[Rfam]
RNA sequence: UAAUACAAUCUGGGGAGCUAAGGAGAUUACUCCUAUGCUGAGAGGGACCUGUUCCGACCCAUAUACCUGAUCCGGCUAAUACCGGCGUAGGGAGAUGGAUUCCAUAUAUA
Numbered sequence: 001u002a003a004u005a006c007a008a009u010c011u012g013g014g015g016a017g018c019u020a021a022g023g024a025g026a027u028u029a030c031u032c033c034u035a036u037g038c039u040g041a042g043a044g045g046g047a048c049c050u051g052u053u054c055c056g057a058c059c060c061a062u063a064u065a066c067c068u069g070a071u072c073c074g075g076c077u078a079a080u081a082c083c084g085g086c087g088u089a090g091g092g093a094g095a096u097g098g099a100u101u102c103c104a105u106a107u108a109u110a
Stems, first nucleotide, its partner, number of pairs: 006098001008096003011061004017038002021034004045055003066091004072085004
Record summary
The family of this 110-nucleotide RNA from Clostridium sp. CAG:75 is "TPP riboswitch aptamer (THI element)". A search with the family's covariance model found it, with a score of 72 bits. Gene Ontology term of the family: thiamine pyrophosphate binding.